The record is a 90-nucleotide RNA sequence from Metarhizium majus, which matches "tRNA" in Rfam.
The match comes from Rfam's covariance-model search (50 bits).
RNA sequence: CCUUCCUUGGUCAAAGAGUCAUGACGUCUGACUGUCAAGCACUGUAUUGCAGUACUCAGAAGGCUCCGGGUUCGAGUCCCGGAGGAGGGA
Number, nucleotide and partner (000 for none) at each position: 001c089002c088003u087004u086005c085006c084007u083008u000009g000010g025011u024012c023013a022014a000015a000016g000017a000018g000019u000020c000021a000022u013023g012024a011025c010026g000027u060028c059029u058030g057031a056032c000033u000034g000035u000036c000037a000038a000039g000040c000041a000042c000043u000044g000045u000046a000047u000048u000049g000050c000051a000052g000053u000054a000055c000056u031057c030058a029059g028060a027061a000062g000063g000064c000065u000066c082067c081068g080069g079070g078071u000072u000073c000074g000075a000076g000077u000078c070079c069080c068081g067082g066083a007084g006085g005086a004087g003088g002089g001090a000
Source information:
The family's RNA type in Rfam is transfer RNA. About the family: Transfer RNA (tRNA) molecules are approximately 80 nucleotides in length. The organism belongs to Metarhizium majus, within Eukaryota.